Small nucleolar RNA snoR53Y: an 83-nucleotide RNA sequence from Nelumbo nucifera. Rfam links the family to the GO terms RNA processing and nucleolus.
RNA sequence: GUUCCCAAUGAUGCUUAUUUCUACCAUGCUAAUACCGAUUAUUUUCAAUGAUUGGAUGUUCAAUAUUGUCUCCUGAGGGAACU
Number, nucleotide and partner (000 for none) at each position: 001g082002u081003u080004c079005c078006c000007a000008a000009u000010g000011a000012u000013g000014c000015u000016u000017a000018u000019u000020u000021c000022u000023a000024c000025c000026a000027u000028g000029c000030u000031a000032a000033u000034a000035c000036c000037g000038a000039u000040u000041a000042u000043u000044u000045u000046c000047a000048a000049u000050g000051a000052u000053u000054g000055g000056a000057u000058g000059u000060u000061c000062a000063a000064u000065a000066u000067u000068g000069u000070c000071u000072c000073c000074u000075g000076a000077g000078g005079g004080a003081a002082c001083u000
The literature on the family includes a 2001 paper in RNA by Brown et al., "Multiple snoRNA gene clusters from Arabidopsis". Clan: snoR53 clan. The source organism's lineage runs through Eukaryota, Viridiplantae, Euphyllophyta, Magnoliopsida and Nelumbo.